Shown here is a 144-nucleotide RNA sequence from Nakamurella aerolata, a member of the family "FMN riboswitch aptamer (RFN element)". The source organism's lineage runs through Bacteria, Actinomycetota, Actinomycetes, Nakamurellaceae and Nakamurella.

[Rfam]
RNA sequence: AUCGUGCUCCGGGGUCGGUGAAAAUCCGAGCCGGCGGUGAAAGCCCGCGACCCGCCACGAUCGUCCGGCGACCGGGCGAGCGCGGCGGUUGAUCUGGUGAAAAUCCAGAGCCGACGGUGAAAGUCCGGAUGGGAGGCGCACGAG
Numbered sequence: 001a002u003c004g005u006g007c008u009c010c011g012g013g014g015u016c017g018g019u020g021a022a023a024a025u026c027c028g029a030g031c032c033g034g035c036g037g038u039g040a041a042a043g044c045c046c047g048c049g050a051c052c053c054g055c056c057a058c059g060a061u062c063g064u065c066c067g068g069c070g071a072c073c074g075g076g077c078g079a080g081c082g083c084g085g086c087g088g089u090u091g092a093u094c095u096g097g098u099g100a101a102a103a104u105c106c107a108g109a110g111c112c113g114a115c116g117g118u119g120a121a122a123g124u125c126c127g128g129a130u131g132g133g134a135g136g137c138g139c140a141c142g143a144g
Base pairs, nucleotide, nucleotide: 003142004141005140006139007138009136010135016028017027018026030124031123032113033112034048035047036046037045043111044110052088053087054086055085056084093109094108095107096106097105115127116126117125

A search with the family's covariance model found it, with a score of 94 bits.